[Rfam]
RNA: Purine riboswitch aptamer
RNA sequence: UUAAAAAACAUAUAAUUUACUCAUAUAUCCCCUGAAUAUGGCAGGAAGUAUCUACCAGGAGCCGUAAAUUCCUGACUAUGAGUGAAAUUUAAGCUUGU
Numbered sequence: 001u002u003a004a005a006a007a008a009c010a011u012a013u014a015a016u017u018u019a020c021u022c023a024u025a026u027a028u029c030c031c032c033u034g035a036a037u038a039u040g041g042c043a044g045g046a047a048g049u050a051u052c053u054a055c056c057a058g059g060a061g062c063c064g065u066a067a068a069u070u071c072c073u074g075a076c077u078a079u080g081a082g083u084g085a086a087a088u089u090u091a092a093g094c095u096u097g098u
Stems, first nucleotide, its partner, number of pairs: 018084008031045004056074006